Source information: This 145-nucleotide RNA from Candidatus Brocadiaceae bacterium S225 belongs to the Rfam family "c-di-GMP-I riboswitch aptamer". The match comes from Rfam's covariance-model search (55 bits).
RNA sequence: CUACGAUAAAGGCAACCUCUGAGUGAUCAGGGGGCGCAAAGUAAAGGGUCUUUAUGUGCGGACAUGGAUGAACUGAGAUAUCUUAAAUAAUAUCUCUGAGUGUGCACAAAGUAUAUUUUUUAUAAAAGACAGCCUUACUGCCGAA
Numbered sequence: 001c002u003a004c005g006a007u008a009a010a011g012g013c014a015a016c017c018u019c020u021g022a023g024u025g026a027u028c029a030g031g032g033g034g035c036g037c038a039a040a041g042u043a044a045a046g047g048g049u050c051u052u053u054a055u056g057u058g059c060g061g062a063c064a065u066g067g068a069u070g071a072a073c074u075g076a077g078a079u080a081u082c083u084u085a086a087a088u089a090a091u092a093u094c095u096c097u098g099a100g101u102g103u104g105c106a107c108a109a110a111g112u113a114u115a116u117u118u119u120u121u122a123u124a125a126a127a128g129a130c131a132g133c134c135u136u137a138c139u140g141c142c143g144a145a
Base pairs, nucleotide, nucleotide: 012037013036017032018031019030020029021028022027040139041138042137043136045135046134047133048130049129050128055124056123057122